[Rfam]
Shown here is an 85-nucleotide RNA sequence from Oceanospirillum linum, a member of the family "sRNA-Xcc1". A reference for the family is Chen et al. (2011), "sRNA-Xcc1, an integron-encoded transposon- and plasmid-transferred trans-acting sRNA, is under the positive control of the key virulence regulators HrpG and HrpX of Xanthomonas campestris pathovar campestris", RNA Biol. Pairs were carried over by alignment from the consensus structure, which was predicted with RNAalifold. It scores 58 bits against the family's covariance model. The family's RNA type in Rfam is small RNA.
RNA sequence: GCCGGAAGGGCAGUGAAUAAAAUACCCGUAAGGGGAAUAAGCUCGCGGUGACUGUUGACCGUUUCGAACCUCCCGGUACUCACGU
Dot-bracket structure: (((((.(((..(((.(........(((....)))...)..))).(((((........)))))......))).)))))........